[Rfam]
RNA sequence: AAAUAUAAAUUAGCGCCAGACUAGAAAUAGUUAACGAGGUAUGUAGUUAUCGAGUUUUCGGCGGAUACUACAUUGGGUGUAUAUGCUCAUUAGAUUAUUAUAAAAAAACAAAAUCAAAAUUGUAACAAGAUAAUAAUCAUAUAUAAG
Numbered sequence: 001a002a003a004u005a006u007a008a009a010u011u012a013g014c015g016c017c018a019g020a021c022u023a024g025a026a027a028u029a030g031u032u033a034a035c036g037a038g039g040u041a042u043g044u045a046g047u048u049a050u051c052g053a054g055u056u057u058u059c060g061g062c063g064g065a066u067a068c069u070a071c072a073u074u075g076g077g078u079g080u081a082u083a084u085g086c087u088c089a090u091u092a093g094a095u096u097a098u099u100a101u102a103a104a105a106a107a108a109c110a111a112a113a114u115c116a117a118a119a120u121u122g123u124a125a126c127a128a129g130a131u132a133a134u135a136a137u138c139a140u141a142u143a144u145a146a147g
Stems, first nucleotide, its partner, number of pairs: 020031004041073005050061004074089006093138007108123004
glmS glucosamine-6-phosphate activated ribozyme aptamer: a 147-nucleotide sequence from Clostridium sp. CAG:302. About the family: This entry contains a glucosamine-6-phosphate activated ribozyme that is found in the mRNA for GlmS. GlmS is an enzyme that uses fructose-6-phosphate and glutamine to generate glucosamine-6-phosphate. The ribozyme catalyses self cleavage of the glmS mRNA that is thought to regulate GlmS activity. The family's RNA type in Rfam is riboswitch. It scores 57 bits against the family's covariance model.